[Rfam]
The record is a 171-nucleotide sequence from Petrimonas mucosa, which matches "Group II catalytic intron D1-D4-3" in Rfam.

RNA sequence: UCCGCCAUGAAGCGGAAUCUGAAGGAAGCUUAAGGCAAAGUUCCGCCCCGAGGAACACGAAUCAUAUCAGGCAUACCCGUCGGGACGAGACUGCAAAACAAGUCAAAGUCCAAAGAUUACACGGACGUCGGGGUGUAAAUAUGGCGGAGACAUGGAAUGAAAGUUAACUGC
Numbered sequence: 001u002c003c004g005c006c007a008u009g010a011a012g013c014g015g016a017a018u019c020u021g022a023a024g025g026a027a028g029c030u031u032a033a034g035g036c037a038a039a040g041u042u043c044c045g046c047c048c049c050g051a052g053g054a055a056c057a058c059g060a061a062u063c064a065u066a067u068c069a070g071g072c073a074u075a076c077c078c079g080u081c082g083g084g085a086c087g088a089g090a091c092u093g094c095a096a097a098a099c100a101a102g103u104c105a106a107a108g109u110c111c112a113a114a115g116a117u118u119a120c121a122c123g124g125a126c127g128u129c130g131g132g133g134u135g136u137a138a139a140u141a142u143g144g145c146g147g148a149g150a151c152a153u154g155g156a157a158u159g160a161a162a163g164u165u166a167a168c169u170g171c
Base pairs, nucleotide, nucleotide: 001016002015003014004013005012028171029170035164036163040158041157042156043155044154045153046149048147049146050145062144063143064142065141066140071136072135073134076132077131078130079129081127082126083111084110085109086108089104090103091102092101

On this family, see Bonen and Vogel, Trends Genet 2001: "The ins and outs of group II introns". About the family: Group II introns are found in rRNA, tRNA and mRNA of organelles in fungi, plants and protists, and also in mRNA in bacteria. The pairing is the family consensus, mapped onto this sequence.